[Rfam]
RNA sequence: AUCCCUUCGCUAAGGAGUCUCUUAUGCGGAAACUCAUGGCCGCUAUCAUAGCGGGCCUGAUAGGGCUGACCGCGCUGUCCGUGUCGAUCACGGCUGUCGCAUGCGGUGACUCCAGCUAUCAAUCUUCAAAUGGCAAGUGAGCCCGCCGCCCGAAGGCGCCGAGUGCGCACAAAAAAAGGCCUUCAUCUGACGAUGAGGGCCUUUUACU
Numbered sequence: 001a002u003c004c005c006u007u008c009g010c011u012a013a014g015g016a017g018u019c020u021c022u023u024a025u026g027c028g029g030a031a032a033c034u035c036a037u038g039g040c041c042g043c044u045a046u047c048a049u050a051g052c053g054g055g056c057c058u059g060a061u062a063g064g065g066c067u068g069a070c071c072g073c074g075c076u077g078u079c080c081g082u083g084u085c086g087a088u089c090a091c092g093g094c095u096g097u098c099g100c101a102u103g104c105g106g107u108g109a110c111u112c113c114a115g116c117u118a119u120c121a122a123u124c125u126u127c128a129a130a131u132g133g134c135a136a137g138u139g140a141g142c143c144c145g146c147c148g149c150c151c152g153a154a155g156g157c158g159c160c161g162a163g164u165g166c167g168c169a170c171a172a173a174a175a176a177a178g179g180c181c182u183u184c185a186u187c188u189g190a191c192g193a194u195g196a197g198g199g200c201c202u203u204u205u206a207c208u
Base pairs, nucleotide, nucleotide: 002036006030007029008028009027010026013022014021015020038057039056040055041053042052043051044050063151064150065149066148072100073099074098075096079093080092081091082090083089103146104145105144108142110141111140112139115134116133117132118131156168157167158166159165174205175204176203177202178201179200180199181198182197183196184195185194186193187192